RNA sequence: UGUGCCUGAUCAGCACAUUGGGUGUGACUGAAUAAACUUACUGGCAUAUAGCUGGUUAAGGUGAUGCGACAGAGGUGGUGCUCGCUGUCAGGAAUGGCAGAACUACAAACCAAGUAGGUCGUAGGCAGAGUGGUAAUUCUAAACUGUAGAAAUGCCCUGCUCUUGUUGGUAUACAGGAUUCCAACCACCCUCCCU
Numbered sequence: 001u002g003u004g005c006c007u008g009a010u011c012a013g014c015a016c017a018u019u020g021g022g023u024g025u026g027a028c029u030g031a032a033u034a035a036a037c038u039u040a041c042u043g044g045c046a047u048a049u050a051g052c053u054g055g056u057u058a059a060g061g062u063g064a065u066g067c068g069a070c071a072g073a074g075g076u077g078g079u080g081c082u083c084g085c086u087g088u089c090a091g092g093a094a095u096g097g098c099a100g101a102a103c104u105a106c107a108a109a110c111c112a113a114g115u116a117g118g119u120c121g122u123a124g125g126c127a128g129a130g131u132g133g134u135a136a137u138u139c140u141a142a143a144c145u146g147u148a149g150a151a152a153u154g155c156c157c158u159g160c161u162c163u164u165g166u167u168g169g170u171a172u173a174c175a176g177g178a179u180u181c182c183a184a185c186c187a188c189c190c191u192c193c194c195u
Stems, first nucleotide, its partner, number of pairs: 001017005020190005027062002040056006065123006072083003076112004085100006103117004127163007137151003144176004165185005
A member of the RNA family "manA RNA", 195 nucleotides long. Rfam's curators write: manA RNA has been located in 5'UTR regions of genes of mannose or fructose metabolism. Has been proposed as a cis-regulatory element and as a riboswitch candidate for his complex secondary structure. The family's consensus secondary structure is taken from published work. Rfam's curators put it in the seed alignment.